[Rfam]
The family of this 87-nucleotide sequence from Gossypium aridum is "MIR7486 microRNA precursor family".

RNA sequence: CACGUCAGCGCGAUUUGCUAACAUGACAACAAAUCGCGCCCUAUAGAACGCGAUUUGCUGCCACUUCAUCAAAUCGCUCUGACGUGG
Number, nucleotide and partner (000 for none) at each position: 001c086002a085003c084004g083005u082006c081007a080008g079009c000010g077011c076012g075013a074014u073015u072016u071017g070018c000019u068020a000021a066022c000023a000024u063025g062026a000027c060028a059029a000030c057031a056032a055033a054034u053035c052036g051037c050038g049039c000040c000041c046042u000043a000044u000045a000046g041047a000048a000049c038050g037051c036052g035053a034054u033055u032056u031057g030058c000059u028060g027061c000062c025063a024064c000065u000066u021067c000068a019069u000070c017071a016072a015073a014074u013075c012076g011077c010078u000079c008080u007081g006082a005083c004084g003085u002086g001087g000